[Rfam]
Nucleotides: 077
Stems, first nucleotide, its partner, number of pairs: 001068004
Number, partner (000 for none) and nucleotide at each position: 001068g002067a003066g004065c005000u006000a007000u008000g009000a010000g011000g012000a013000a014000u015000g016000a017000c018000a019000a020000a021000a022000a023000a024000a025000a026000u027000c028000c029000u030000g031000a032000c033000a034000c035000a036000c037000u038000a039000c040000u041000g042000a043000a044000g045000a046000c047000u048000g049000u050000c051000a052000g053000a054000u055000c056000c057000a058000a059000c060000u061000c062000u063000g064000a065004g066003c067002u068001c069000a070000c071000u072000a073000u074000u075000u076000u077000g
Shown here is a 77-nucleotide RNA sequence from Salvator merianae, a member of the family "Small nucleolar RNA SNORD19". The family is grouped with related families in Rfam's "SNORD19 clan". Pairs were carried over by alignment from the consensus structure. The literature on the family includes a 2001 paper in EMBO J by Huttenhofer et al., "RNomics: an experimental approach that identifies 201 candidates for novel, small, non-messenger RNAs in mouse". The source organism's lineage runs through Eukaryota, Opisthokonta, Amniota, Unidentata and Salvator.